[Rfam]
RNA sequence: UGACCCUUUUUAAAGCCGAGGGUCACCUAGCCAACUGACGUUGUUAGUGAACCUAUUGUUCACACUAUAUAUCAGCCAAUUGCUUCAUGCGAUUGGCUAUUUUUUU
Numbered sequence: 001u002g003a004c005c006c007u008u009u010u011u012a013a014a015g016c017c018g019a020g021g022g023u024c025a026c027c028u029a030g031c032c033a034a035c036u037g038a039c040g041u042u043g044u045u046a047g048u049g050a051a052c053c054u055a056u057u058g059u060u061c062a063c064a065c066u067a068u069a070u071a072u073c074a075g076c077c078a079a080u081u082g083c084u085u086c087a088u089g090c091g092a093u094u095g096g097c098u099a100u101u102u103u104u105u106u
Stems, first nucleotide, its partner, number of pairs: 001025006041074001043072002047063006076096008
A member of the RNA family "Qrr RNA" from Vibrio tapetis, 106 nucleotides long. Pairs were carried over by alignment from the consensus structure, which is taken from published work. Rfam classes the family as a small RNA. This family represents a set of small RNAs (the Qrr RNAs) that are thought to be involved in the regulation of quorum sensing in Vibrio species. The family has 30 seed sequences and 148 matches in Rfam 15.1.